[Rfam]
RNA sequence: UUACAAUGAUGAUAUCCUUAAGGCUUGUUUCUCAGAACAUUCGCAGUGGCCGCCUGAGAGCUUUCGCCUUCGCCAGGCUUGAGAGCUAUUGCUGCUUUUUUUCCUUCCUUGGAUGUCUGAGUUU
Numbered sequence: 001u002u003a004c005a006a007u008g009a010u011g012a013u014a015u016c017c018u019u020a021a022g023g024c025u026u027g028u029u030u031c032u033c034a035g036a037a038c039a040u041u042c043g044c045a046g047u048g049g050c051c052g053c054c055u056g057a058g059a060g061c062u063u064u065c066g067c068c069u070u071c072g073c074c075a076g077g078c079u080u081g082a083g084a085g086c087u088a089u090u091g092c093u094g095c096u097u098u099u100u101u102u103c104c105u106u107c108c109u110u111g112g113a114u115g116u117c118u119g120a121g122u123u124u
Base pairs, nucleotide, nucleotide: 003122004121060086061085062084063083064082065081
Rfam assigns this 124-nucleotide sequence from Cucumis melo to the family "Small nucleolar RNA SNORD14". A search with the family's covariance model found it, with a score of 78 bits. Rfam links the family to the GO terms RNA processing and nucleolus. A reference for the family is Samarsky et al. (1996), "An essential domain in Saccharomyces cerevisiae U14 snoRNA is absent in vertebrates, but conserved in other yeasts", Nucleic Acids Res. The family's RNA type in Rfam is C/D-box small nucleolar RNA. From the family's description: U14 small nucleolar RNA (U14 snoRNA) is required for early cleavages of eukaryotic precursor rRNAs. In yeasts, this molecule possess a stem-loop region (known as the Y-domain) which is essential for function. The base pairs follow the family's consensus structure, which was predicted with PFOLD.